[Rfam]
RNA sequence: GAGCCAUGCAGUGAGCACAAAGCGAAUUAUUCUUUCGCCUUUUACUAAAGAAUACCGUGUGUGCACUGCUAAUAUUGGCAUACGCUUAUUUUUAGAGGGUACUUAAAUAAGAAGUGCC
Numbered sequence: 001g002a003g004c005c006a007u008g009c010a011g012u013g014a015g016c017a018c019a020a021a022g023c024g025a026a027u028u029a030u031u032c033u034u035u036c037g038c039c040u041u042u043u044a045c046u047a048a049a050g051a052a053u054a055c056c057g058u059g060u061g062u063g064c065a066c067u068g069c070u071a072a073u074a075u076u077g078g079c080a081u082a083c084g085c086u087u088a089u090u091u092u093u094a095g096a097g098g099g100u101a102c103u104u105a106a107a108u109a110a111g112a113a114g115u116g117c118c
Stems, first nucleotide, its partner, number of pairs: 003079004009068005015062005028054008097118001099117006
U5 spliceosomal RNA: a 118-nucleotide sequence from Malus domestica.
A search with the family's covariance model found it, with a score of 86 bits.
Gene Ontology terms of the family: spliceosomal tri-snRNP complex assembly and U5 snRNP.
Rfam classes the family as a spliceosomal small nuclear RNA.
Pairs were carried over by alignment from the consensus structure, which is taken from published work.